[Rfam]
RNA sequence: UCUUCAUUUCACACACUCUCUCACCGAUCGGAGAGGCGAUGGAGCGCGUGAAAUGAAGAGA
Dot-bracket structure: (((((((..(.(.(.((.(.((...............)).).)).).).)..)))))))..
Notes
This 61-nucleotide sequence from Pristionchus pacificus belongs to the Rfam family "mir-8364 microRNA precursor family". Rfam links the family to the GO terms miRNA-mediated post-transcriptional gene silencing and RISC complex. A search with the family's covariance model found it, with a score of 67 bits.